[Rfam]
RNA: Group II catalytic intron D1-D4-1
RNA sequence: GCCUCAUGCCUGAAAGGGCAACGGCGUCGAGCCGGAGCGAGAAGUCAGCAGAGGCCGAAGUAGUCACAGGAUAAGCCGGUGAGGCAGAGGCUGGUGACGAAGGGC
Numbered sequence: 001g002c003c004u005c006a007u008g009c010c011u012g013a014a015a016g017g018g019c020a021a022c023g024g025c026g027u028c029g030a031g032c033c034g035g036a037g038c039g040a041g042a043a044g045u046c047a048g049c050a051g052a053g054g055c056c057g058a059a060g061u062a063g064u065c066a067c068a069g070g071a072u073a074a075g076c077c078g079g080u081g082a083g084g085c086a087g088a089g090g091c092u093g094g095u096g097a098c099g100a101a102g103g104g105c
Stems, first nucleotide, its partner, number of pairs: 001025002004023001007020005045052002054105003063098005